[Rfam]
RNA sequence: UAUACUUAUGUGGAACUACAUAAUUUUAAGUACAAUAAAUAUUGACUAAUAAUAUUAAUAUAUCAAUAAUUCUAUGUACUUUGUGCAUUACUGCUAGCCACCAUGAAUAUUAUAUA
Numbered sequence: 001u002a003u004a005c006u007u008a009u010g011u012g013g014a015a016c017u018a019c020a021u022a023a024u025u026u027u028a029a030g031u032a033c034a035a036u037a038a039a040u041a042u043u044g045a046c047u048a049a050u051a052a053u054a055u056u057a058a059u060a061u062a063u064c065a066a067u068a069a070u071u072c073u074a075u076g077u078a079c080u081u082u083g084u085g086c087a088u089u090a091c092u093g094c095u096a097g098c099c100a101c102c103a104u105g106a107a108u109a110u111u112a113u114a115u116a
Stems, first nucleotide, its partner, number of pairs: 006106005012099002017093002026038003031035001039070002042066004074088005

The family of this 116-nucleotide RNA sequence from Cercocebus atys is "Mitochondrial DNA control region secondary structure A". A search with the family's covariance model found it, with a score of 48 bits.